Rfam assigns this 325-nucleotide RNA from Etheostoma spectabile to the family "7SK RNA".
[Rfam]
RNA sequence: GGAUGUGAGGGCGAUCUGGCUGCGACAUCUGUCACCCCAUUGAUCGCUAGGGUUUAUUCGGCUGAUCUGGCUGGCUAGGCGGGUGUCCCCUUCCUCCCUCACCGCUCCAUGUGUGUCCCCCCCGAAGCCCCGCGCUCGGUGGAAGAGGCCAUGGCUAGGACGAUGGUUCUCCCGGCGGACGUCCAUCCUUCGGUGUACCAGUAGCUACGCUCCCCUGCUAGAACCUCCAAACAAGCUCAAGGCCCAUUUGUAGGAGAAACGUAGGGAAGUUAAGCUCCAAAGCACAUCCAAAUGAGGCACUGCACGUGGCAGUCUGCCUUUCUUU
Number, nucleotide and partner (000 for none) at each position: 001g108002g107003a106004u000005g102006u101007g100008a099009g098010g097011g096012c000013g093014a092015u000016c000017u000018g090019g089020c000021u000022g000023c000024g087025a086026c085027a084028u083029c082030u081031g080032u079033c078034a000035c074036c073037c070038c069039a068040u000041u000042g067043a066044u065045c064046g062047c061048u060049a000050g000051g000052g000053u000054u000055u000056a000057u000058u000059c000060g048061g047062c046063u000064g045065a044066u043067c042068u039069g038070g037071c000072u000073g036074g035075c000076u000077a000078g033079g032080c031081g030082g029083g028084u027085g026086u025087c024088c000089c019090c018091u000092u014093c013094c000095u000096c011097c010098c009099u008100c007101a006102c005103c000104g000105c000106u003107c002108c001109a000110u000111g000112u000113g000114u000115g000116u181117c000118c178119c177120c000121c175122c139123c138124g137125a136126a000127g135128c134129c000130c000131c000132g000133c000134g128135c127136u125137c124138g123139g122140u174141g173142g172143a000144a000145g000146a000147g170148g169149c000150c000151a000152u000153g000154g000155c000156u000157a000158g000159g000160a000161c000162g000163a000164u000165g000166g000167u000168u000169c148170u147171c000172c142173c141174g140175g121176c000177g119178g118179a000180c000181g116182u000183c000184c000185a000186u000187c000188c000189u000190u000191c000192g000193g000194u000195g000196u000197a000198c000199c000200a000201g000202u000203a000204g275205c274206u273207a000208c000209g000210c269211u268212c000213c266214c265215c264216u263217g262218c261219u000220a000221g000222a000223a000224c000225c256226u255227c254228c253229a000230a000231a251232c250233a249234a248235g247236c000237u000238c000239a000240a000241g000242g000243c000244c000245c000246a000247u235248u234249u233250g232251u231252a000253g228254g227255a226256g225257a000258a000259a000260c000261g218262u217263a216264g215265g214266g213267a000268a211269g210270u000271u000272a000273a206274g205275c204276u000277c000278c000279a000280a000281a000282g000283c000284a000285c000286a000287u000288c000289c000290a325291a324292a323293u000294g320295a319296g318297g317298c316299a313300c312301u311302g310303c309304a000305c000306g000307u000308g000309g303310c302311a301312g300313u299314c000315u000316g298317c297318c296319u295320u294321u000322c000323u292324u291325u290
The base pairs follow the family's consensus structure, which is taken from published work. 7SK was discovered as an abundant small nuclear RNA in the mid-70s but a possible function has only recently been suggested. Rfam 15.1 lists 49,373 matches to the family in 668 species. Rfam classes the family as a non-coding RNA gene.